[Rfam]
The family of this 110-nucleotide sequence from Vibrio ostreae is "Qrr RNA".
From the family's description: This family represents a set of small RNAs (the Qrr RNAs) that are thought to be involved in the regulation of quorum sensing in Vibrio species.
The source organism's lineage runs through Bacteria, Pseudomonadota, Gammaproteobacteria, Vibrionaceae and Vibrio.
A search with the family's covariance model found it, with a score of 107 bits.
It is annotated as a small RNA.
Pairs were carried over by alignment from the consensus structure, which is taken from published work.
A reference for the family is Lenz et al. (2004), "The Small RNA Chaperone Hfq and Multiple Small RNAs Control Quorum Sensing in Vibrio harveyi and Vibrio cholerae", Cell.
Rfam 15.1 lists 148 matches to the family in 70 species.
RNA sequence: CGACCCUUAUUAAGCCGAGGGUCACCUAGCCAACUGACGUUGUUAGUGAAUCGAUAUUUGUUCACAUCAUAUAUAAGCCAAUCGCACCAUUUGCGGUUGGCUCUUUUUUA
Numbered sequence: 001c002g003a004c005c006c007u008u009a010u011u012a013a014g015c016c017g018a019g020g021g022u023c024a025c026c027u028a029g030c031c032a033a034c035u036g037a038c039g040u041u042g043u044u045a046g047u048g049a050a051u052c053g054a055u056a057u058u059u060g061u062u063c064a065c066a067u068c069a070u071a072u073a074u075a076a077g078c079c080a081a082u083c084g085c086a087c088c089a090u091u092u093g094c095g096g097u098u099g100g101c102u103c104u105u106u107u108u109u110a
Base pairs, nucleotide, nucleotide: 002023003022004021005020006019040076041075042074043073046065047064048063049062050061051060078100079099080098081097082096083095084094085093